[Rfam]
RNA sequence: CAGCAGGGGAGAAACCUGCCGAGGUAAAAGUCAGAAACCUUGUAGCUAGGAUAGCAGGGUUAAAGGAAACUGAGAUUCUGGAGUCUAUCGACAAUAUUAUCCAAGGGAUGAUAGCGAGUUGCCAGGCCGUAGCGAAA
Numbered sequence: 001c002a003g004c005a006g007g008g009g010a011g012a013a014a015c016c017u018g019c020c021g022a023g024g025u026a027a028a029a030g031u032c033a034g035a036a037a038c039c040u041u042g043u044a045g046c047u048a049g050g051a052u053a054g055c056a057g058g059g060u061u062a063a064a065g066g067a068a069a070c071u072g073a074g075a076u077u078c079u080g081g082a083g084u085c086u087a088u089c090g091a092c093a094a095u096a097u098u099a100u101c102c103a104a105g106g107g108a109u110g111a112u113a114g115c116g117a118g119u120u121g122c123c124a125g126g127c128c129g130u131a132g133c134g135a136a137a
Base pairs, nucleotide, nucleotide: 020042021041022040023039024038050089051088052087053086054085055080056079057078058077059076060075064071065070096112097111098110099109100108101107114130115129116128
RNA: Group II catalytic intron D1-D4-4
Organism: Desulfofarcimen acetoxidans